Repression of heat shock gene expression (ROSE) element: a 99-nucleotide RNA from Nitrobacter sp. Nb-311A.
Rfam's curators write: This family represents a 5' UTR cis-regulatory element found in heat shock mRNAs and is known as the ROSE (repression of heat shock gene expression) element. The ROSE element is a negative regulator of heat shock gene expression. The secondary structure is thought to be regulated by temperature. This regulation blocks access to the ribosome binding site under normal conditions.
The family's consensus secondary structure is taken from published work.
Rfam 15.1 lists 381 matches to the family in 262 species.
The match comes from Rfam's covariance-model search (81 bits).
RNA sequence: UCGAGCGCCGGAAGGGCUCGAGGAUUGAGACGGGCGCCGGGCCGGUGUCCGGCGUCCGCUCGUAUCCAUCUUGCUCCAAGGAGGAUUUGGCUAUGAGAG
Numbered sequence: 001u002c003g004a005g006c007g008c009c010g011g012a013a014g015g016g017c018u019c020g021a022g023g024a025u026u027g028a029g030a031c032g033g034g035c036g037c038c039g040g041g042c043c044g045g046u047g048u049c050c051g052g053c054g055u056c057c058g059c060u061c062g063u064a065u066c067c068a069u070c071u072u073g074c075u076c077c078a079a080g081g082a083g084g085a086u087u088u089g090g091c092u093a094u095g096a097g098a099g
Stems, first nucleotide, its partner, number of pairs: 001021006008015002031058010059097006066090003071085002074083003